[Rfam]
A member of the RNA family "Acido-Lenti-1 RNA" from Urbifossiella limnaea, 46 nucleotides long.
RNA sequence: CCCAGGGCCUUUGCUCUGGGCUGUUGGCUGCCGCCCCUUCGGGGCU
Numbered sequence: 001c002c003c004a005g006g007g008c009c010u011u012u013g014c015u016c017u018g019g020g021c022u023g024u025u026g027g028c029u030g031c032c033g034c035c036c037c038u039u040c041g042g043g044g045c046u
Stems, first nucleotide, its partner, number of pairs: 001020008033045005
The family's RNA type in Rfam is small RNA.
The family's consensus secondary structure is taken from published work.